[Rfam]
RNA sequence: UGAUAUCAGGGGCAAAAGGUCAAAAAGCCGUUCAUGCUUGCAUGAUAAGGCUUUUGAACUUGGGACCCGCCGAACAUGAGGAGGUAGCGAUUUACGUAGUAAAUCAGCGGAUUCCGAAUGUUCGAGAAUUGCGGGAGCUGCUUUGCAGCGGAGCAAUUCGUGGAUAUCA
Dot-bracket structure: (((((((..((.(..(((.(((.((((((.((((((....))))).).))))))))).)))..).))...(((((((..((((...(((((((((...))))))).))...))))..))))))).(((((((....((((.....))))...)))))))...)))))))
RNA: Clostridiales-1 RNA